The family of this 135-nucleotide RNA sequence from Ornithorhynchus anatinus is "Small nucleolar RNA SNORA5". The source organism's lineage runs through Eukaryota, Opisthokonta, Sarcopterygii, Ornithorhynchidae and Ornithorhynchus. The family has 6 seed sequences and 2,226 matches in Rfam 15.1. Rfam classes the family as an H/ACA-box small nucleolar RNA. Its Rfam clan is "SNORA5 clan". The family's consensus secondary structure was predicted with RNAfold. Gene Ontology terms of the family: nucleolus and RNA processing.
[Rfam]
RNA sequence: CGCAGCCCCGUCAAAUUCGGCGCCCGCCCCCACCGUGGCGGGCGCCGGCCCUACGGCUGCCACAGCGACACCGCGGCCCAUGGGCCCCGCGUCCCCCUCCCCGGGGCUCGGGGAUAGAUGUCGCCGCGGACACCC
Numbered sequence: 001c002g003c004a005g006c007c008c009c010g011u012c013a014a015a016u017u018c019g020g021c022g023c024c025c026g027c028c029c030c031c032a033c034c035g036u037g038g039c040g041g042g043c044g045c046c047g048g049c050c051c052u053a054c055g056g057c058u059g060c061c062a063c064a065g066c067g068a069c070a071c072c073g074c075g076g077c078c079c080a081u082g083g084g085c086c087c088c089g090c091g092u093c094c095c096c097c098u099c100c101c102c103g104g105g106g107c108u109c110g111g112g113g114a115u116a117g118a119u120g121u122c123g124c125c126g127c128g129g130a131c132a133c134c135c
Base pairs, nucleotide, nucleotide: 002060003059004058005057018047019046020045021044022043023042024041025040026039027038028037073127074126075125076124077123085113086112087111088110089109